[Rfam]
RNA sequence: CGAUUAAUUGGGGCAUAGAGGCUGAAAUAACUCGGAUAGUCUAGUGUUGUCAUCAGCUUCUUCUCUUUGUAUAUCACGAGAUUGGAGUUAAAUAACAGCCCUAUAUUU
Numbered sequence: 001c002g003a004u005u006a007a008u009u010g011g012g013g014c015a016u017a018g019a020g021g022c023u024g025a026a027a028u029a030a031c032u033c034g035g036a037u038a039g040u041c042u043a044g045u046g047u048u049g050u051c052a053u054c055a056g057c058u059u060c061u062u063c064u065c066u067u068u069g070u071a072u073a074u075c076a077c078g079a080g081a082u083u084g085g086a087g088u089u090a091a092a093u094a095a096c097a098g099c100c101c102u103a104u105a106u107u108u
Stems, first nucleotide, its partner, number of pairs: 043102002046099004055089006062081004
RNA: Small nucleolar RNA snoR97
Organism: Coptis chinensis